A member of the RNA family "mir-160 microRNA precursor family" from Vitis vinifera, 87 nucleotides long. The source organism's lineage runs through Eukaryota, Viridiplantae, Streptophyta, Embryophyta and Vitis. On this family, see Rhoades et al., Cell 2002: "Prediction of plant microRNA targets".
RNA sequence: AUCUGCCUGGCUCCCUGAAUGCCAUCUAAGAAGCUUGUCAAGGUUGUUGACUCUCUUCCUAGUUGGCAUCAGAGGAGUCAUGCAGGC
Numbered sequence: 001a002u003c004u005g006c007c008u009g010g011c012u013c014c015c016u017g018a019a020u021g022c023c024a025u026c027u028a029a030g031a032a033g034c035u036u037g038u039c040a041a042g043g044u045u046g047u048u049g050a051c052u053c054u055c056u057u058c059c060u061a062g063u064u065g066g067c068a069u070c071a072g073a074g075g076a077g078u079c080a081u082g083c084a085g086g087c
Base pairs, nucleotide, nucleotide: 002086003085004084005083006082008080009079010078011077012076013075014074016072019069020068021067022066023065024064027061028060
The match comes from Rfam's covariance-model search (49 bits).